[Rfam]
RNA sequence: GCCGAGACUAGAGUCACAUCUAGACAUUGCUUGUAGUCAUGAUGUGCUAGAGUACUCGGAGAAUACCUACUAACCUUUAUUCACUGCCUGUCCUUAUUAGUAGUUCAGUCAGUCACCAGGUUAGUAACAAAA
Number, nucleotide and partner (000 for none) at each position: 001g000002c059003c058004g057005a056006g055007a053008c052009u051010a000011g000012a048013g047014u000015c046016a045017c044018a043019u042020c041021u000022a000023g038024a037025c036026a000027u000028u000029g000030c000031u000032u000033g000034u000035a000036g025037u024038c023039a000040u000041g020042a019043u018044g017045u016046g015047c013048u012049a000050g000051a009052g008053u007054a000055c006056u005057c004058g003059g002060a000061g000062a000063a000064u000065a000066c000067c000068u000069a000070c124071u123072a122073a121074c120075c119076u118077u000078u000079a000080u000081u000082c000083a113084c112085u111086g110087c000088c000089u107090g106091u000092c000093c103094u102095u000096a000097u000098u000099a000100g000101u000102a094103g093104u000105u000106c090107a089108g000109u000110c086111a085112g084113u083114c000115a000116c000117c000118a076119g075120g074121u073122u072123a071124g070125u000126a000127a000128c000129a000130a000131a000132a000